[Rfam]
RNA sequence: CGCGUCCGUCCCCUGGACGCCACUGACCCUCCGGUGGUGCUCCGGGCUACCCUGACGGCGUGCGCCUUCCAUGGGAAGCGCAAAGCCGACAGCCGUCGCACUCCAGGGAGCACCUUCAUG
Numbered sequence: 001c002g003c004g005u006c007c008g009u010c011c012c013c014u015g016g017a018c019g020c021c022a023c024u025g026a027c028c029c030u031c032c033g034g035u036g037g038u039g040c041u042c043c044g045g046g047c048u049a050c051c052c053u054g055a056c057g058g059c060g061u062g063c064g065c066c067u068u069c070c071a072u073g074g075g076a077a078g079c080g081c082a083a084a085g086c087c088g089a090c091a092g093c094c095g096u097c098g099c100a101c102u103c104c105a106g107g108g109a110g111c112a113c114c115u116u117c118a119u120g
Base pairs, nucleotide, nucleotide: 061082062081063080064079066078067077068076069075085099086098088097089096090095

Source information: The record is a 120-nucleotide sequence from Streptomyces fagopyri, which matches "Streptomyces-metH RNA" in Rfam. NCBI's taxonomy places the organism under Bacteria, Bacillati, Actinomycetota, Actinomycetes, Streptomyces. It is annotated as a small RNA.